[Rfam]
RNA sequence: AUCAACUUAAACGACGCAAUCCCUACCUCUAUUGCAUCCUUACAGCUCCGAAGCUGAUCCAGUGUGAUUAAGUCGUAUCAAAACGUA
Numbered sequence: 001a002u003c004a005a006c007u008u009a010a011a012c013g014a015c016g017c018a019a020u021c022c023c024u025a026c027c028u029c030u031a032u033u034g035c036a037u038c039c040u041u042a043c044a045g046c047u048c049c050g051a052a053g054c055u056g057a058u059c060c061a062g063u064g065u066g067a068u069u070a071a072g073u074c075g076u077a078u079c080a081a082a083a084c085g086u087a
Base pairs, nucleotide, nucleotide: 035066036065039062040061043056044055045054046053047052
A member of the RNA family "BsrC" from Halobacillus halophilus, 87 nucleotides long. For this family Rfam cites "Novel small RNA-encoding genes in the intergenic regions of Bacillus subtilis" (Saito et al., Gene, 2008). Rfam describes the family as follows. The 301 nucleotide sequence from Kouji Nakamura has been trimmed to a highly conserved ~85 nucleotide long core to form this family. Pairs were carried over by alignment from the consensus structure, which was predicted with CMfinder. A search with the family's covariance model found it, with a score of 66 bits. Rfam classes the family as a small RNA.